A member of the RNA family "Small nucleolar RNA SNORD20" from Oryctolagus cuniculus, 79 nucleotides long. Rfam's curators write: U20 is a C/D box small nucleolar RNA that is encoded in intron 11 of the nucleolin gene in human, mouse and rat. The literature on the family includes a 1994 paper in Mol Cell Biol by Nicoloso et al., "U20, a novel small nucleolar RNA, is encoded in an intron of the nucleolin gene in mammals". Lineage of the source: Eukaryota > Eumetazoa > Euteleostomi > Leporidae > Oryctolagus. The family's RNA type in Rfam is C/D-box small nucleolar RNA.

[Rfam]
RNA sequence: UGGAUAUGAUGACAGACGGCCUGAGAAGGAAUGAUGAAAUCUCGAGAGAAUUCCUCUAGAUAGUCAAGUUCUGAUCUGG
Numbered sequence: 001u002g003g004a005u006a007u008g009a010u011g012a013c014a015g016a017c018g019g020c021c022u023g024a025g026a027a028g029g030a031a032u033g034a035u036g037a038a039a040u041c042u043c044g045a046g047a048g049a050a051u052u053c054c055u056c057u058a059g060a061u062a063g064u065c066a067a068g069u070u071c072u073g074a075u076c077u078g079g
Stems, first nucleotide, its partner, number of pairs: 001078004